[Rfam]
RNA sequence: UGGCCUCGGAUCAGGUGGGGAUACCCGCUGAACUUAAGCAUAUCAAUAAGCGGAGGAAAAGAAACCAACAGGGAUUGCCUCAGUAACGGCGAGUGAAGCGGCAACAGCUCAAAUUUGAAAUCUGGCGCAAGCCCGAGUUGUAAUUUGCAGAGGAUGUUUCGGGUGAAGCCACGGUCCAAGUCCCUUGGAACAGGACGUCAUAGAGGGUGAGAACCCCGUACCUGGCCGUCGGUGCCCCCCGCUGUGAAACUCCUUCGACGAGUCGAGUUGUUUGGGAAUGCAGCUCUAAAUUGGUGGUAAAUUCCAUCUAAAGCUAAAUACCGGCCAGAGACCGAUAGCGCACAAGUAGAGUGAUCGAAAGAUGAAAAGCACUUUGAAAAGAGAGUUAAAAAGUACGUGAAAUUGUUGAAAGGGAAG
Numbered sequence: 001u002g003g004c005c006u007c008g009g010a011u012c013a014g015g016u017g018g019g020g021a022u023a024c025c026c027g028c029u030g031a032a033c034u035u036a037a038g039c040a041u042a043u044c045a046a047u048a049a050g051c052g053g054a055g056g057a058a059a060a061g062a063a064a065c066c067a068a069c070a071g072g073g074a075u076u077g078c079c080u081c082a083g084u085a086a087c088g089g090c091g092a093g094u095g096a097a098g099c100g101g102c103a104a105c106a107g108c109u110c111a112a113a114u115u116u117g118a119a120a121u122c123u124g125g126c127g128c129a130a131g132c133c134c135g136a137g138u139u140g141u142a143a144u145u146u147g148c149a150g151a152g153g154a155u156g157u158u159u160c161g162g163g164u165g166a167a168g169c170c171a172c173g174g175u176c177c178a179a180g181u182c183c184c185u186u187g188g189a190a191c192a193g194g195a196c197g198u199c200a201u202a203g204a205g206g207g208u209g210a211g212a213a214c215c216c217c218g219u220a221c222c223u224g225g226c227c228g229u230c231g232g233u234g235c236c237c238c239c240c241g242c243u244g245u246g247a248a249a250c251u252c253c254u255u256c257g258a259c260g261a262g263u264c265g266a267g268u269u270g271u272u273u274g275g276g277a278a279u280g281c282a283g284c285u286c287u288a289a290a291u292u293g294g295u296g297g298u299a300a301a302u303u304c305c306a307u308c309u310a311a312a313g314c315u316a317a318a319u320a321c322c323g324g325c326c327a328g329a330g331a332c333c334g335a336u337a338g339c340g341c342a343c344a345a346g347u348a349g350a351g352u353g354a355u356c357g358a359a360a361g362a363u364g365a366a367a368a369g370c371a372c373u374u375u376g377a378a379a380a381g382a383g384a385g386u387u388a389a390a391a392a393g394u395a396c397g398u399g400a401a402a403u404u405g406u407u408g409a410a411a412g413g414g415a416a417g
Stems, first nucleotide, its partner, number of pairs: 024055001025053005035042002065072002076103004086094002106315004112145004118139002121136002124133003150256002152253003157249004162240002165237001168233001171229006180196001183194003199203001206216002265286007293308004349356002372383004

This 417-nucleotide part of an RNA from Venturia inaequalis belongs to the Rfam family "Eukaryotic large subunit ribosomal RNA". A search with the family's covariance model found it, with a score of 3191 bits. Rfam links the family to the GO terms structural constituent of ribosome and ribosome. Clan: LSU clan. Lineage of the source: Eukaryota > leotiomyceta > dothideomyceta > Pleosporomycetidae > Venturia.